A member of the RNA family "L17 ribosomal protein downstream element" from Streptococcus intermedius, 72 nucleotides long.
By type it is a cis-regulatory element.
The source organism's lineage runs through Bacteria, Bacillota, Lactobacillales, Streptococcaceae and Streptococcus intermedius.
[Rfam]
RNA sequence: UGAGUGUUAUGAUGAUGGAGUAAUAUUACUCUUAGUCUAGCUCUGGUCUACCGCUAGGAUUUUUCCUAGCGG
Numbered sequence: 001u002g003a004g005u006g007u008u009a010u011g012a013u014g015a016u017g018g019a020g021u022a023a024u025a026u027u028a029c030u031c032u033u034a035g036u037c038u039a040g041c042u043c044u045g046g047u048c049u050a051c052c053g054c055u056a057g058g059a060u061u062u063u064u065c066c067u068a069g070c071g072g
Stems, first nucleotide, its partner, number of pairs: 002043004011037003017032006051072009
The family's consensus secondary structure is taken from published work.